[Rfam]
RNA: mir-3492 microRNA precursor family
Organism: Schistosoma haematobium
RNA sequence: AGCUUUCUGAAUCCGUGCCGAGAUUUCGUCAGACACCAACUUAUUAGAGUUGGUCAGACUUUCAAGAUAAGUGAAGUU
Dot-bracket structure: .(((((.(..(((..((..(((.(((.(((.....................))).)))))).)).)))..).))))).